[Rfam]
RNA sequence: AUACUCCCUCCAUCUCAUAAUAUAAGAGCGUUUUUUGCACUACCCUAGUGUCAAAAACGCUCUUAUAUUAUGGGACAGAGGGAGUAC
Numbered sequence: 001a002u003a004c005u006c007c008c009u010c011c012a013u014c015u016c017a018u019a020a021u022a023u024a025a026g027a028g029c030g031u032u033u034u035u036u037g038c039a040c041u042a043c044c045c046u047a048g049u050g051u052c053a054a055a056a057a058c059g060c061u062c063u064u065a066u067a068u069u070a071u072g073g074g075a076c077a078g079a080g081g082g083a084g085u086a087c
Stems, first nucleotide, its partner, number of pairs: 003085003007081004013075005019069017037051005

Background
Rfam assigns this 87-nucleotide RNA from Triticum urartu to the family "MIR1120/MIR1122 microRNA precursor family". A search with the family's covariance model found it, with a score of 91 bits. On this family, see Yao et al., Genome Biol 2007: "Cloning and characterization of microRNAs from wheat (Triticum aestivum L.)".